RNA sequence: GAUUCGUUGGUUUAAAUCAAACCUGUUAUGAUUUAAGAAAACGAAUCGCCACAACCACAUUGUUUGCUGAGCUUGACUCCGGGCAGUGUGGUUAUUUU
Numbered sequence: 001g002a003u004u005c006g007u008u009g010g011u012u013u014a015a016a017u018c019a020a021a022c023c024u025g026u027u028a029u030g031a032u033u034u035a036a037g038a039a040a041a042c043g044a045a046u047c048g049c050c051a052c053a054a055c056c057a058c059a060u061u062g063u064u065u066g067c068u069g070a071g072c073u074u075g076a077c078u079c080c081g082g083g084c085a086g087u088g089u090g091g092u093u094a095u096u097u098u
Stems, first nucleotide, its partner, number of pairs: 002046007011037009053093014069079003
Shown here is a 98-nucleotide RNA sequence from Streptococcus pantholopis, a member of the family "23S methyl RNA motif". By type it is a cis-regulatory element. The family's consensus secondary structure is taken from published work. It scores 87 bits against the family's covariance model. On this family, see Weinberg et al., Nucleic Acids Res 2007: "Identification of 22 candidate structured RNAs in bacteria using the CMfinder comparative genomics pipeline". Lineage of the source: Bacteria > Bacillota > Bacilli > Streptococcaceae > Streptococcus.